[Rfam]
The family of this 175-nucleotide RNA sequence from Clostridioides difficile is "Lysine riboswitch aptamer". Pairs were carried over by alignment from the consensus structure, which is taken from published work.
RNA sequence: ACCUAGGGUAGAGGUAGCUGUAACUAAGAGUAUCCAAUAGUAGCUGGCAGGUGUUAAUGAUUGGAAAAAGGAUUUACAGCCGAAGAAAAUAUUUCUUGCAAUAAUAUUUUCUGGGAUUGCACAUAACAUGUGUAAUACUGUCACUUAUUUUUGUAGGUGAUGAGCUACAGGGUUU
Number, nucleotide and partner (000 for none) at each position: 001a000002c000003c000004u000005a000006g000007g000008g168009u167010a166011g165012a000013g000014g000015u000016a000017g080018c079019u078020g077021u076022a075023a074024c000025u072026a000027a000028g000029a000030g000031u000032a000033u065034c064035c063036a062037a061038u060039a000040g058041u000042a000043g000044c000045u000046g000047g000048c000049a000050g000051g000052u000053g000054u000055u000056a000057a000058u040059g000060a038061u037062u036063g035064g034065a033066a000067a000068a000069a000070g000071g000072a025073u000074u023075u022076a021077c020078a019079g018080c017081c000082g000083a000084a112085g111086a110087a109088a108089a107090u106091a105092u104093u103094u000095c000096u000097u000098g000099c000100a000101a000102u000103a093104a092105u091106a090107u089108u088109u087110u086111c085112u084113g139114g138115g000116a136117u135118u134119g133120c132121a131122c130123a129124u000125a000126a000127c000128a000129u123130g122131u121132g120133u119134a118135a117136u116137a000138c114139u113140g000141u160142c159143a158144c157145u156146u155147a154148u000149u000150u000151u000152u000153g000154u147155a146156g145157g144158u143159g142160a141161u000162g000163a000164g000165c011166u010167a009168c008169a000170g000171g000172g000173u000174u000175u000